[Rfam]
RNA sequence: AUUUGUCUUCAAGGGGUAGGUUAAAUUCCUCACCGGUGGUAAAGCCCACGAGCCAAAUAUGGCAGAUCAGGUUUGAUUCCUGAGCCGACGGUAUAGUCCGGAUGAAAAGGAAGAUCCCC
Numbered sequence: 001a002u003u004u005g006u007c008u009u010c011a012a013g014g015g016g017u018a019g020g021u022u023a024a025a026u027u028c029c030u031c032a033c034c035g036g037u038g039g040u041a042a043a044g045c046c047c048a049c050g051a052g053c054c055a056a057a058u059a060u061g062g063c064a065g066a067u068c069a070g071g072u073u074u075g076a077u078u079c080c081u082g083a084g085c086c087g088a089c090g091g092u093a094u095a096g097u098c099c100g101g102a103u104g105a106a107a108a109g110g111a112a113g114a115u116c117c118c119c
Base pairs, nucleotide, nucleotide: 005115006114007113008112009111010110018030019029020028032097033096034087035086036049037048038047039046044085045084052063053062054061067083068082069081070080071079089100090099091098
Annotation: FMN riboswitch aptamer (RFN element): a 119-nucleotide RNA from Ezakiella coagulans. Its family is annotated with FMN binding in the Gene Ontology. Pairs were carried over by alignment from the consensus structure, which is taken from published work. Lineage of the source: Bacteria > Bacillati > Bacillota > Tissierellia > Ezakiella.